Background: The record is an 84-nucleotide RNA sequence, which matches "mir-301 microRNA precursor family" in Rfam. Rfam links the family to the GO terms miRNA-mediated post-transcriptional gene silencing and RISC complex. Pairs were carried over by alignment from the consensus structure, which was predicted with WAR.
RNA sequence: UGUUAACAGGUGCUCUGACUUCAUUGCACUACUGUAUUGGACAGCUAGCAGUGCAAUAGUAUUGUCAAAGCGUCUGAGAGCAGC
Numbered sequence: 001u002g003u004u005a006a007c008a009g010g011u012g013c014u015c016u017g018a019c020u021u022c023a024u025u026g027c028a029c030u031a032c033u034g035u036a037u038u039g040g041a042c043a044g045c046u047a048g049c050a051g052u053g054c055a056a057u058a059g060u061a062u063u064g065u066c067a068a069a070g071c072g073u074c075u076g077a078g079a080g081c082a083g084c
Stems, first nucleotide, its partner, number of pairs: 002081003007076008016067004023057008034042001